[Rfam]
RNA sequence: ACGUGUUGGUGAUGAGACCACGGAAUCCUGCGUCAGGCAUGGCGCCCGAUACACCGUGAGGAGUAAUUUUCCAGCUGCCUUCCUUCUGAAACACGA
Dot-bracket structure: .((((......................................................................................)))).